[Rfam]
RNA sequence: GAAUGAUAUGAUGAAUAGAGGAUGUUUCCCUAUUGGUUUGAUUGCCGUAAUGAUGGCAUCUUAUGUAUUAGCUCUAUCUGAUCAUUC
Numbered sequence: 001g002a003a004u005g006a007u008a009u010g011a012u013g014a015a016u017a018g019a020g021g022a023u024g025u026u027u028c029c030c031u032a033u034u035g036g037u038u039u040g041a042u043u044g045c046c047g048u049a050a051u052g053a054u055g056g057c058a059u060c061u062u063a064u065g066u067a068u069u070a071g072c073u074c075u076a077u078c079u080g081a082u083c084a085u086u087c
Base pairs, nucleotide, nucleotide: 002086003085004084005083040060043058044057045056046055